[Rfam]
The family of this 263-nucleotide part of an RNA from Halosimplex carlsbadense is "Archaeal large subunit ribosomal RNA".
The organism belongs to Halosimplex, within Archaea.
RNA sequence: GAGUGUGUCUGUUUGGCGAGUCUAACCGGUUCAUCCGGGAAGGCAUAGGGAAACCGACAUGGCCGCAGUGCUUUGCACCAGGGCCGCCGUGUUCAAGCGCGGGGAGUCAAACUGACACGACCCGAAACCGGACGAUCUACGCGUGGGCAAGACGAAGCGUGCCGAAAGGCACGUGGAGGUCUGCUAGUGUUGGUGUUUUACAACACCCUCACGUGACCUACGUGUAGGGGUGAAAGGCCCAUCGAGUUCGGCAACAGCUGGUU
Numbered sequence: 001g002a003g004u005g006u007g008u009c010u011g012u013u014u015g016g017c018g019a020g021u022c023u024a025a026c027c028g029g030u031u032c033a034u035c036c037g038g039g040a041a042g043g044c045a046u047a048g049g050g051a052a053a054c055c056g057a058c059a060u061g062g063c064c065g066c067a068g069u070g071c072u073u074u075g076c077a078c079c080a081g082g083g084c085c086g087c088c089g090u091g092u093u094c095a096a097g098c099g100c101g102g103g104g105a106g107u108c109a110a111a112c113u114g115a116c117a118c119g120a121c122c123c124g125a126a127a128c129c130g131g132a133c134g135a136u137c138u139a140c141g142c143g144u145g146g147g148c149a150a151g152a153c154g155a156a157g158c159g160u161g162c163c164g165a166a167a168g169g170c171a172c173g174u175g176g177a178g179g180u181c182u183g184c185u186a187g188u189g190u191u192g193g194u195g196u197u198u199u200a201c202a203a204c205a206c207c208c209u210c211a212c213g214u215g216a217c218c219u220a221c222g223u224g225u226a227g228g229g230g231u232g233a234a235a236g237g238c239c240c241a242u243c244g245a246g247u248u249c250g251g252c253a254a255c256a257g258c259u260g261g262u263u
Base pairs, nucleotide, nucleotide: 005118006117007116008115009114011112012111013110014109015108016107017106020044021043022042023041026038027037028036029035048055049054061085062084063083064082068078069077070076071075088101089100090099091098121261122260124258128251129250130249131248132247133246137227138226139225140224141223142222143221144220145219146218147217148215150182151181152180153179157174158173159172160171161170162169163168187212188211189210192208193207195206196205229239230238231237